A member of the RNA family "OmrA-B family" from Citrobacter koseri, 87 nucleotides long. The literature on the family includes a 2001 paper in Curr Biol by Argaman et al., "Novel small RNA-encoding genes in the intergenic regions of Escherichia coli". It is annotated as a small RNA.

[Rfam]
RNA sequence: CCCAGAGGUAUUGAUUGGUGAGAUUAUUCGGUACGCUCUUCGUACCUGUCUCUUGCACCAACCUGCGCGGAUGCGCAGGUUUUUUUU
Numbered sequence: 001c002c003c004a005g006a007g008g009u010a011u012u013g014a015u016u017g018g019u020g021a022g023a024u025u026a027u028u029c030g031g032u033a034c035g036c037u038c039u040u041c042g043u044a045c046c047u048g049u050c051u052c053u054u055g056c057a058c059c060a061a062c063c064u065g066c067g068c069g070g071a072u073g074c075g076c077a078g079g080u081u082u083u084u085u086u087u
Stems, first nucleotide, its partner, number of pairs: 016060005023049001030046006061080008